[Rfam]
RNA sequence: AGCUGUAUAUCUGGUUAACUGAAGGUUUUCUGGACGCGGGUUCGAGUCCCGCCGUCUCCACCAAGAAGAUAUUCGUAGUAAAUUGAGUAUCUUGUUGAUGGGGACGCCAAGGUUUCGACAGGGAAAGAUAGGAAGACUGGCAGCCGGUAGGCGAUGACCGUAAAUCAAGCAAAACUCUUAAAUGCAAAUGACGAAAGUUACGCAUUAGCCGCCUAA
Numbered sequence: 001a002g003c004u005g006u007a008u009a010u011c012u013g014g015u016u017a018a019c020u021g022a023a024g025g026u027u028u029u030c031u032g033g034a035c036g037c038g039g040g041u042u043c044g045a046g047u048c049c050c051g052c053c054g055u056c057u058c059c060a061c062c063a064a065g066a067a068g069a070u071a072u073u074c075g076u077a078g079u080a081a082a083u084u085g086a087g088u089a090u091c092u093u094g095u096u097g098a099u100g101g102g103g104a105c106g107c108c109a110a111g112g113u114u115u116c117g118a119c120a121g122g123g124a125a126a127g128a129u130a131g132g133a134a135g136a137c138u139g140g141c142a143g144c145c146g147g148u149a150g151g152c153g154a155u156g157a158c159c160g161u162a163a164a165u166c167a168a169g170c171a172a173a174a175c176u177c178u179u180a181a182a183u184g185c186a187a188a189u190g191a192c193g194a195a196a197g198u199u200a201c202g203c204a205u206u207a208g209c210c211g212c213c214u215a216a
Stems, first nucleotide, its partner, number of pairs: 002144004015134002026124003030121003036052005053106007145160004
Overview: permuted transfer-messenger RNA: a 216-nucleotide sequence from an Alcaligenaceae bacterium. Pairs were carried over by alignment from the consensus structure, which is taken from published work. Rfam's curators write: Bacterial tmRNA, also known as 10Sa RNA or SsrA, is named for its dual tRNA and mRNA-like properties. Its role is to liberate the mRNA from a stalled ribosome. For this family Rfam cites "tmRDB (tmRNA database)" (Zwieb et al., Nucleic Acids Res, 2003).